[Rfam]
Rfam assigns this 98-nucleotide RNA sequence from Ornithinibacillus scapharcae to the family "pemK RNA". The organism belongs to Ornithinibacillus scapharcae, within Bacteria.
RNA sequence: AUAAUGAUACUCCCCUACCGUCAUGGUUCGAGCGUUCAAAGCGUCGCAAGCUAUGAGUAGGGCUGGAAGAAAUACUUGCAGGGGUGAAAUUCCCGUGG
Numbered sequence: 001a002u003a004a005u006g007a008u009a010c011u012c013c014c015c016u017a018c019c020g021u022c023a024u025g026g027u028u029c030g031a032g033c034g035u036u037c038a039a040a041g042c043g044u045c046g047c048a049a050g051c052u053a054u055g056a057g058u059a060g061g062g063c064u065g066g067a068a069g070a071a072a073u074a075c076u077u078g079c080a081g082g083g084g085u086g087a088a089a090u091u092c093c094c095g096u097g098g
Stems, first nucleotide, its partner, number of pairs: 012095001013062006063081003067077003082094003